[Rfam]
Rfam assigns this 267-nucleotide RNA from Rattus norvegicus to the family "Mason-Pfizer monkey virus packaging signal". The family has 9 seed sequences and 2,921 matches in Rfam 15.1. This family represents a group of sequences that are related to the Mason-Pfizer monkey virus (MPMV) packaging signal. Taxonomically the source falls in Rattus (Eukaryota, Boreoeutheria, Muroidea, Muridae).
RNA sequence: UGGUGCCCAAAGUGUGGGGCCUGGAUACAGGGGUCUCCGUGAGGAAGAAGACUCAUGUGGCCGGCAUUAUAUAUAGAAAUUUCUUCGAACGCCGUGGGAGCCUGCUGUGGCCAAAACGAAGGUGAGUGAUAGAGUCUGAUUAUGGGACAAGCAUUAAACCAACAUGAGGUCUAUGUGAGACAGUUAAAGGCAUUAAAGAUGCAGGGAGUAAAGGUAAAACCCAAUGAUUUAUUUAAUGUUUUGAUUUUGUUAAGGAUCUUUGCCCUU
Numbered sequence: 001u002g003g004u005g006c007c008c009a010a011a012g013u014g015u016g017g018g019g020c021c022u023g024g025a026u027a028c029a030g031g032g033g034u035c036u037c038c039g040u041g042a043g044g045a046a047g048a049a050g051a052c053u054c055a056u057g058u059g060g061c062c063g064g065c066a067u068u069a070u071a072u073a074u075a076g077a078a079a080u081u082u083c084u085u086c087g088a089a090c091g092c093c094g095u096g097g098g099a100g101c102c103u104g105c106u107g108u109g110g111c112c113a114a115a116a117c118g119a120a121g122g123u124g125a126g127u128g129a130u131a132g133a134g135u136c137u138g139a140u141u142a143u144g145g146g147a148c149a150a151g152c153a154u155u156a157a158a159c160c161a162a163c164a165u166g167a168g169g170u171c172u173a174u175g176u177g178a179g180a181c182a183g184u185u186a187a188a189g190g191c192a193u194u195a196a197a198g199a200u201g202c203a204g205g206g207a208g209u210a211a212a213g214g215u216a217a218a219a220c221c222c223a224a225u226g227a228u229u230u231a232u233u234u235a236a237u238g239u240u241u242u243g244a245u246u247u248u249g250u251u252a253a254g255g256a257u258c259u260u261u262g263c264c265c266u267u
Base pairs, nucleotide, nucleotide: 006033007032008031012028013027014026038050040048081124083122084120085119093109094108095107096106097105130150132148135146136145137144138143155195156194157193159190160189202243203242204241205240206239208237209236212230213229214228215227217225252267253266254265255264257262